[Rfam]
RNA sequence: GGCCAGUGCGAAGGUAGUGAGUUAUCUCAAUCUCACAGUAAGUUACAGAUUGAACUCCUUGUUCUACUCUUUCCCCAGUUCUCACUACUGCACUUGAGUAGUCUUUA
Numbered sequence: 001g002g003c004c005a006g007u008g009c010g011a012a013g014g015u016a017g018u019g020a021g022u023u024a025u026c027u028c029a030a031u032c033u034c035a036c037a038g039u040a041a042g043u044u045a046c047a048g049a050u051u052g053a054a055c056u057c058c059u060u061g062u063u064c065u066a067c068u069c070u071u072u073c074c075c076c077a078g079u080u081c082u083c084a085c086u087a088c089u090g091c092a093c094u095u096g097a098g099u100a101g102u103c104u105u106u107a
Stems, first nucleotide, its partner, number of pairs: 001103003005099001007097001010095002014091002016086006038068001041065002
The family of this 107-nucleotide RNA sequence from Pongo abelii is "Y RNA". About the family: Y RNAs are components of the Ro ribonucleoprotein particle (Ro RNP), in association with Ro60 and La proteins. The Y RNAs and Ro60 and La proteins are well conserved, but the function of the Ro RNP is not known. In humans the RNA component can be one of four small RNAs -- hY1, hY3, hY4 and hY5. The family's RNA type in Rfam is non-coding RNA gene. Taxonomically the source falls in Pongo (Eukaryota, Opisthokonta, Eumetazoa, Craniata). Pairs were carried over by alignment from the consensus structure, which is taken from published work.